[Rfam]
RNA: Purine riboswitch aptamer
RNA sequence: UUGAAAACUAAAUACAUUUUUCAUAUAAUAGCGAGAAUAUGGCUUGCGAGUUUCUACCGGUUUACCGUAAAUAAACCGACUAUGAAAAAGCAGAGAGUAAUC
Numbered sequence: 001u002u003g004a005a006a007a008c009u010a011a012a013u014a015c016a017u018u019u020u021u022c023a024u025a026u027a028a029u030a031g032c033g034a035g036a037a038u039a040u041g042g043c044u045u046g047c048g049a050g051u052u053u054c055u056a057c058c059g060g061u062u063u064a065c066c067g068u069a070a071a072u073a074a075a076c077c078g079a080c081u082a083u084g085a086a087a088a089a090g091c092a093g094a095g096a097g098u099a100a101u102c
Stems, first nucleotide, its partner, number of pairs: 018088008029049001031047005058078007